A member of the RNA family "Purine riboswitch aptamer" from Sporosarcina sp. P19, 100 nucleotides long. It scores 68 bits against the family's covariance model. Gene Ontology term of the family: purine nucleobase biosynthetic process.
[Rfam]
RNA sequence: AAUUUCAUUACGGAAUCAACAUGUAUAACCUCGAUAAUAUGGUUCGAGGGUCUCUACCAGGAACCGUCAAAUCCUGAUUACAAAAUCAUUUUUGUAAUCG
Numbered sequence: 001a002a003u004u005u006c007a008u009u010a011c012g013g014a015a016u017c018a019a020c021a022u023g024u025a026u027a028a029c030c031u032c033g034a035u036a037a038u039a040u041g042g043u044u045c046g047a048g049g050g051u052c053u054c055u056a057c058c059a060g061g062a063a064c065c066g067u068c069a070a071a072u073c074c075u076g077a078u079u080a081c082a083a084a085a086u087c088a089u090u091u092u093u094g095u096a097a098u099c100g
Stems, first nucleotide, its partner, number of pairs: 018086001022082004029049006058076005
Dot-bracket structure: .................(...((((...((((((.........))))))........(((((.........)))))..))))...)..............